Record summary: This 168-nucleotide RNA sequence from Bacillus thuringiensis belongs to the Rfam family "M-box riboswitch aptamer (ykoK leader)". NCBI's taxonomy places the organism under Bacteria, Bacillati, Bacilli, Bacillus thuringiensis, Bacillus thuringiensis serovar israelensis. Rfam's curators put it in the seed alignment. For this family Rfam cites "Structure and mechanism of a metal-sensing regulatory RNA" (Dann CE 3rd et al., Cell, 2007).

[Rfam]
RNA sequence: AAUAAUCUUUGUUAGGUGAGGCUCCUGUAUAGAGAAACGCUGCUGCCCAAAAAUGUCGAGAGACGCCAAUGGGUCAACAGGAACGGUCGGAUUAAGGCCCUUCUUAAUGUAGCUGGUUAUAAAAACCUAUGCUAUACAGUGCUAAAACUCAACGAGGGAGUGGUAUAC
Numbered sequence: 001a002a003u004a005a006u007c008u009u010u011g012u013u014a015g016g017u018g019a020g021g022c023u024c025c026u027g028u029a030u031a032g033a034g035a036a037a038c039g040c041u042g043c044u045g046c047c048c049a050a051a052a053a054u055g056u057c058g059a060g061a062g063a064c065g066c067c068a069a070u071g072g073g074u075c076a077a078c079a080g081g082a083a084c085g086g087u088c089g090g091a092u093u094a095a096g097g098c099c100c101u102u103c104u105u106a107a108u109g110u111a112g113c114u115g116g117u118u119a120u121a122a123a124a125a126c127c128u129a130u131g132c133u134a135u136a137c138a139g140u141g142c143u144a145a146a147a148c149u150c151a152a153c154g155a156g157g158g159a160g161u162g163g164u165a166u167a168c
Stems, first nucleotide, its partner, number of pairs: 005164003009160002011153002013095001015149003020143003025139008039113005045074005054065004080104004086098003115127003